[Rfam]
RNA sequence: AGAUAUCCUCGUUAGGUGAGGCUCCUAUACAAACAAAAGCCACUGCCCGGAAAUAUCGAGAGAUACCUACGGGUAGAACAGAAAUUGUCGGAUUAAGGCUUUUUCUAAGGUGGCUAAGAGAUGCUUCUACUCUUUACGUUGUAUAGUGCUAAAACCAGACCAGGGGGAACGGAC
Numbered sequence: 001a002g003a004u005a006u007c008c009u010c011g012u013u014a015g016g017u018g019a020g021g022c023u024c025c026u027a028u029a030c031a032a033a034c035a036a037a038a039g040c041c042a043c044u045g046c047c048c049g050g051a052a053a054u055a056u057c058g059a060g061a062g063a064u065a066c067c068u069a070c071g072g073g074u075a076g077a078a079c080a081g082a083a084a085u086u087g088u089c090g091g092a093u094u095a096a097g098g099c100u101u102u103u104u105c106u107a108a109g110g111u112g113g114c115u116a117a118g119a120g121a122u123g124c125u126u127c128u129a130c131u132c133u134u135u136a137c138g139u140u141g142u143a144u145a146g147u148g149c150u151a152a153a154a155c156c157a158g159a160c161c162a163g164g165g166g167g168a169a170c171g172g173a174c
Base pairs, nucleotide, nucleotide: 006169008167009166010165011160012159013096016155017154020150021149022148025146026145027144028143029142030141031140032139039114040113041112042111043110045074046073047072048071049070054065055064056063057062081105082104083103084102087099088098089097116134117133118132119131120130
Shown here is a 174-nucleotide RNA sequence from Paenibacillus larvae, a member of the family "M-box riboswitch aptamer (ykoK leader)".
Taxonomically the source falls in Paenibacillus larvae subsp. larvae (Bacteria, Bacilli, Paenibacillaceae, Paenibacillus).